The family of this 41-nucleotide RNA sequence from Tupaia belangeri is "MAT2A 3'UTR stem loop D". It scores 36 bits against the family's covariance model. Rfam classes the family as a cis-regulatory element. Taxonomically the source falls in Tupaia belangeri (Eukaryota, Bilateria, Gnathostomata, Tetrapoda).

RNA sequence: UUCUGGGUAUGGCAUGAGUACAGAGAAGCUGGCACCUCCGA
Numbered sequence: 001u002u003c004u005g006g007g008u009a010u011g012g013c014a015u016g017a018g019u020a021c022a023g024a025g026a027a028g029c030u031g032g033c034a035c036c037u038c039c040g041a
Base pairs, nucleotide, nucleotide: 001041002040005037006036007035008034010031011030012029013028